The record is a 130-nucleotide RNA sequence from Acinonyx jubatus, which matches "Small nucleolar RNA SNORA51" in Rfam. From the family's description: ACA51 is a member of the H/ACA class of snoRNA that guide the sites of modification of uridines to pseudouridines. It scores 119 bits against the family's covariance model. Pairs were carried over by alignment from the consensus structure, which was predicted with PFOLD. By type it is an H/ACA-box small nucleolar RNA. Its family is annotated with nucleolus and RNA processing in the Gene Ontology.
[Rfam]
RNA sequence: AGCCUCCUGGUGCUUACCACAGGCUGUGUUCUUAUACUGACUGUACAGAAAGAGGAGGCAGAGUAAAUCCACCCAUAUACACCCCAGCCCAGUGCUUUGCCUCAUCUGUGUUGGGAAUGGGGGGACAUGG
Numbered sequence: 001a002g003c004c005u006c007c008u009g010g011u012g013c014u015u016a017c018c019a020c021a022g023g024c025u026g027u028g029u030u031c032u033u034a035u036a037c038u039g040a041c042u043g044u045a046c047a048g049a050a051a052g053a054g055g056a057g058g059c060a061g062a063g064u065a066a067a068u069c070c071a072c073c074c075a076u077a078u079a080c081a082c083c084c085c086a087g088c089c090c091a092g093u094g095c096u097u098u099g100c101c102u103c104a105u106c107u108g109u110g111u112u113g114g115g116a117a118u119g120g121g122g123g124g125a126c127a128u129g130g
Stems, first nucleotide, its partner, number of pairs: 002059007020043003026037004072122001073120004085108003091102002